The record is a 79-nucleotide sequence from Betta splendens, which matches "mir-27 microRNA precursor family" in Rfam. The family's consensus secondary structure was predicted with RNAalifold. Rfam 15.1 lists 1,440 matches to the family in 645 species.
RNA sequence: UGAAGAUGCAGAACUUAGCUCAUUGGCGAGCAUUGAACCGAACGAGACUUGUUCACAGUGGCUAAGUUCAGUGUCGGCC
Numbered sequence: 001u002g003a004a005g006a007u008g009c010a011g012a013a014c015u016u017a018g019c020u021c022a023u024u025g026g027c028g029a030g031c032a033u034u035g036a037a038c039c040g041a042a043c044g045a046g047a048c049u050u051g052u053u054c055a056c057a058g059u060g061g062c063u064a065a066g067u068u069c070a071g072u073g074u075c076g077g078c079c
Stems, first nucleotide, its partner, number of pairs: 011069010026056001028054005